[Rfam]
RNA: Glycine riboswitch aptamer
RNA sequence: UUGAUAAAUUUGGGAGAUACUGUUUUAAUUCAGAGCCGAAGGGGAAAGUGCGGCAAACUCUCAGGCAAAAGGACCAAAUUUUGAGA
Numbered sequence: 001u002u003g004a005u006a007a008a009u010u011u012g013g014g015a016g017a018u019a020c021u022g023u024u025u026u027a028a029u030u031c032a033g034a035g036c037c038g039a040a041g042g043g044g045a046a047a048g049u050g051c052g053g054c055a056a057a058c059u060c061u062c063a064g065g066c067a068a069a070a071g072g073a074c075c076a077a078a079u080u081u082u083g084a085g086a
Base pairs, nucleotide, nucleotide: 006081007080008079009078010077011076012075013074020033021032022031035066036065037064038062039061042060043059044058048054049053